Background
The record is a 201-nucleotide sequence from Paenibacillus albiflavus, which matches "c-di-AMP riboswitch aptamer (ydaO/yuaA leader)" in Rfam. Rfam describes the family as follows. This family represents a conserved RNA structure found upstream of the ydaO and yuaA genes in Bacillus subtilis and related genes in other bacteria.
RNA sequence: CAAUUGAAUAAGCCGAAUUUCUAAAUUAGAAAACGGGGGAACCAACCAAGAAGCGAUAAUUCUGCUUUCCAUGAGCAAAUACGUUUCGAUAGGGGUGAAUGUUGCUAGAAGGAUCCAUAAGCAUGGAGGAUCUUCUAUCAAUUAGGGCGUAACUGCCGUCCGAAUCCGUCAGCUAACCUCGUAGGCUUCGUGUCAGUUUAU
Numbered sequence: 001c002a003a004u005u006g007a008a009u010a011a012g013c014c015g016a017a018u019u020u021c022u023a024a025a026u027u028a029g030a031a032a033a034c035g036g037g038g039g040a041a042c043c044a045a046c047c048a049a050g051a052a053g054c055g056a057u058a059a060u061u062c063u064g065c066u067u068u069c070c071a072u073g074a075g076c077a078a079a080u081a082c083g084u085u086u087c088g089a090u091a092g093g094g095g096u097g098a099a100u101g102u103u104g105c106u107a108g109a110a111g112g113a114u115c116c117a118u119a120a121g122c123a124u125g126g127a128g129g130a131u132c133u134u135c136u137a138u139c140a141a142u143u144a145g146g147g148c149g150u151a152a153c154u155g156c157c158g159u160c161c162g163a164a165u166c167c168g169u170c171a172g173c174u175a176a177c178c179u180c181g182u183a184g185g186c187u188u189c190g191u192g193u194c195a196g197u198u199u200a201u
Base pairs, nucleotide, nucleotide: 011187012186013185014184018032019031020030033182034181035180036179037178038177043092093167094166095165101142102141103140104139145161146160147159148158

Lineage of the source: Bacteria > Bacilli > Caryophanales > Paenibacillaceae > Paenibacillus.